[Rfam]
RNA sequence: GUUGUUGGAUUCACCUCAAUCCAUAUGUGUUGGGGUGAAUUGAGGUACAAUUUAGUUUAAGUUCCACUGCAAUCCACCCCAACAUACGUGGAAUGAUGCGAAUCCGACU
Numbered sequence: 001g002u003u004g005u006u007g008g009a010u011u012c013a014c015c016u017c018a019a020u021c022c023a024u025a026u027g028u029g030u031u032g033g034g035g036u037g038a039a040u041u042g043a044g045g046u047a048c049a050a051u052u053u054a055g056u057u058u059a060a061g062u063u064c065c066a067c068u069g070c071a072a073u074c075c076a077c078c079c080c081a082a083c084a085u086a087c088g089u090g091g092a093a094u095g096a097u098g099c100g101a102a103u104c105c106g107a108c109u
Stems, first nucleotide, its partner, number of pairs: 004108009014098001016096003020092005026086007035077003039073004045067002

This 109-nucleotide RNA from Miscanthus lutarioriparius belongs to the Rfam family "MIR5565 microRNA precursor family". Its family is annotated with miRNA-mediated post-transcriptional gene silencing and RISC complex in the Gene Ontology.